[Rfam]
Source information
Shown here is a 587-nucleotide part of an RNA from Rhodoblastus acidophilus, a member of the family "Bacterial large subunit ribosomal RNA". Rfam 15.1 lists 51,934 matches to the family in 10,816 species. The base pairs follow the family's consensus structure, which is taken from published work. Rfam links the family to the GO terms structural constituent of ribosome and ribosome. The match comes from Rfam's covariance-model search (2710 bits). The source organism's lineage runs through Bacteria, Pseudomonadati, Pseudomonadota, Rhodoblastaceae and Rhodoblastus.
Nucleotides: 587
Stems, first nucleotide, its partner, number of pairs: 001583008010575003014570002022404004027400002029396005035201004042193002045190004051154014066139001068137001078136005085119003095112007158181003162178006204216004217239006240385001242342002248300006254280002257275006281290002305328004311322003330339003353379007361372002413454003417451001418448007428438002465540001466538004470532001471529005478503002481498006505519005546564004550559003
Number, partner (000 for none) and nucleotide at each position: 001583c002582c003581u004580g005579c006578g007577g008576u009000c010575a011574g012573a013000c014570g015569g016000a017000a018000a019000g020000a021000c022404c023403c024402c025401g026000u027400g028399c029396a030395c031394c032393u033392u034000u035201a036200c037199u038198g039000u040000a041000a042193c043192u044000u045190u046189g047188c048187g049000c050000u051154g052153g053152c054151a055150u056149u057148c058147g059146u060145g061144u062143c063142g064141g065000c066139a067000u068137g069000u070000g071000u072000a073000g074000g075000a076000u077000a078136g079135g080134u081133g082132g083000u084000a085119g086118a087117c088000g089000u090000u091000g092000a093000a094000a095112c096111g097110g098109g099108g100107g101106c102000g103000c104000c105000a106101g107100c108099u109098c110097u111096c112095g113000c114000g115000g116000a117087g118086u119085c120000a121000c122000c123000c124000u125000u126000g127000a128000a129000a130000u131000a132082c133081c134080a135079c136078c137068c138000u139066u140000a141064u142063c143062g144061a145060c146059a147058u148057g149056g150055a151054u152053g153052u154051c155000u156000a157000a158181c159180c160179g161000c162178g163177c164176u165175g166174c167173g168000u169000c170000a171000u172000c173167c174166g175165c176164a177163g178162c179160c180159g181158g182000g183000a184000c185000a186000g187048c188047g189046c190045a191000u192043g193042g194000u195000g196000g197000g198038c199037a200036g201035u202000u203000u204216g205215a206214c207213u208000g209000g210000g211000g212000c213207g214206g215205u216204c217239g218238c219237c220236u221235c222234c223000c224000a225000a226000a227000g228000a229000g230000u231000a232000a233000c234222g235221g236220a237219g238218g239217c240385g241000c242342g243341c244000g245000a246000u247000g248300g249299u250298g251297g252296g253295c254280u255279c256000a257275g258274a259273c260272c261271g262270g263000u264000c265000g266000g267000a268000a269000a270262u271261c272260g273259g274258u275257c276000g277000u278000u279255g280254a281290g282289u283000g284000c285000a286000a287000u288000g289282g290281c291000a292000u293000a294000a295253g296252c297251c298250u299249g300248c301000c302000u303000g304000a305328c306327u307326g308325c309000g310000a311322g312321a313320c314000u315000g316000a317000c318000a319000a320313g321312u322311c323000g324000a325308g326307c327306a328305g329000a330339g331338a332337c333000g334000a335000a336000a337332g338331u339330c340000g341243g342242u343000c344000a345000u346000a347000g348000u349000g350000a351000u352000c353379c354378g355377g356376u357375g358374g359373u360000u361372c362371c363000u364000c365000g366000u367000g368000g369000a370000a371362g372361g373359g374358c375357c376356a377355u378354c379353g380000c381000u382000c383000a384000a385240c386000g387000g388000a389000u390000a391000a392033a393032a394031g395030g396029u397000a398000c399028g400027c401025c402024g403023g404022g405000g406000a407000u408000a409000a410000c411000a412000g413454g414453c415452u416000g417451a418448u419447a420446a421445c422444u423443c424442c425000c426000a427000a428438g429437a430000g431000u432000c433000c434000a435000u436000a437429u438428c439000g440000a441000c442424g443423g444422a445421g446420u447419u448418g449000u450000u451417u452415g453414g454413c455000a456000c457000c458000u459000c460000g461000a462000u463000g464000u465540c466538g467537g468536c469535u470532c471529a472528u473527c474526a475525c476000a477000u478503c479502c480000u481498g482497g483496g484495g485494c486493u487000g488000g489000a490000g491000a492000a493486g494485g495484u496483c497482c498481c499000a500000a501000g502479g503478g504000u505519u506518c507517g508516g509515c510000u511000g512000u513000u514000c515509g516508c517507c518506g519505a520000u521000u522000a523000a524000a525475g526474u527473g528472g529471u530000a531000c532470g533000u534000g535469a536468g537467c538466u539000g540465g541000g542000u543000u544000c545000a546564g547563a548562a549561c550559g551558u552557c553000g554000u555000g556000a557552g558551a559550c560000a561549g562548u563547u564546c565000g566000g567000u568000c569015c570014c571000u572000a573012u574011c575010u576008g577007c578006c579005g580004u581003g582002g583001g584000u585000g586000u587000a